[Rfam]
RNA: Small nucleolar RNA U54
RNA sequence: UGCUCAAUGAUUCAACCAUGUUAACACAUGGCAAUAUACGCUAUUCUGAUCCACAUGAGGAUGGUGUAAGCUUUAUGAGAGCA
Numbered sequence: 001u002g003c004u005c006a007a008u009g010a011u012u013c014a015a016c017c018a019u020g021u022u023a024a025c026a027c028a029u030g031g032c033a034a035u036a037u038a039c040g041c042u043a044u045u046c047u048g049a050u051c052c053a054c055a056u057g058a059g060g061a062u063g064g065u066g067u068a069a070g071c072u073u074u075a076u077g078a079g080a081g082c083a
Base pairs, nucleotide, nucleotide: 001083002082003081004080005079